[Rfam]
RNA: tRNA
RNA sequence: GGUGGGAUGGUGUAAUGGUAGCACGUGACGUUGUGGUAUAACAUUCCGUUGUAACAUACAAGCCCGUUUCAAUCUGGGUUCGAUUCCCAGUCCCGCCA
Numbered sequence: 001g002g003u004g005g006g007a008u009g010g011u012g013u014a015a016u017g018g019u020a021g022c023a024c025g026u027g028a029c030g031u032u033g034u035g036g037u038a039u040a041a042c043a044u045u046c047c048g049u050u051g052u053a054a055c056a057u058a059c060a061a062g063c064c065c066g067u068u069u070c071a072a073u074c075u076g077g078g079u080u081c082g083a084u085u086c087c088c089a090g091u092c093c094c095g096c097c098a
Base pairs, nucleotide, nucleotide: 001097002096003095004094005093006092007091010024011023012022013021027068028067029066030065074090075089076088077087078086